[Rfam]
RNA sequence: CUUCUGCCUUCCCCGCACAGGAGGGCAGAGCGAGAUGCGUGGCGCUCUCUGCCCUGACAGCGCCAUGGGUCUUGCAGCUCGGGCCGUCGCGCCGGCCGGGUUGAGGGUCCCGGCCCGGCGC
Numbered sequence: 001c002u003u004c005u006g007c008c009u010u011c012c013c014c015g016c017a018c019a020g021g022a023g024g025g026c027a028g029a030g031c032g033a034g035a036u037g038c039g040u041g042g043c044g045c046u047c048u049c050u051g052c053c054c055u056g057a058c059a060g061c062g063c064c065a066u067g068g069g070u071c072u073u074g075c076a077g078c079u080c081g082g083g084c085c086g087u088c089g090c091g092c093c094g095g096c097c098g099g100g101u102u103g104a105g106g107g108u109c110c111c112g113g114c115c116c117g118g119c120g121c
Stems, first nucleotide, its partner, number of pairs: 003029004008024005032073005039066004044061002046057002077090002080086002094115007